RNA sequence: AUGGAAGUGAUGAUCCUUUCCCCAGCUUAUCGACAAUGAUUAUACUAUGCGUUUAAAUUUCUCUUUUUAGAGAUCUAUCAAGCCAGGACUCUGAUCCAU
Number, nucleotide and partner (000 for none) at each position: 001a099002u098003g097004g096005a095006a000007g000008u000009g000010a000011u000012g000013a000014u000015c000016c000017u000018u000019u000020c000021c000022c000023c000024a000025g000026c000027u000028u000029a000030u000031c000032g000033a000034c000035a000036a000037u000038g000039a000040u000041u000042a000043u000044a000045c000046u000047a000048u000049g000050c000051g000052u000053u000054u000055a000056a000057a000058u000059u000060u000061c000062u000063c000064u000065u000066u000067u000068u000069a000070g000071a000072g000073a000074u000075c000076u000077a000078u000079c000080a000081a000082g000083c000084c000085a000086g000087g000088a000089c000090u000091c000092u000093g000094a000095u005096c004097c003098a002099u001
RNA: Small nucleolar RNA Z103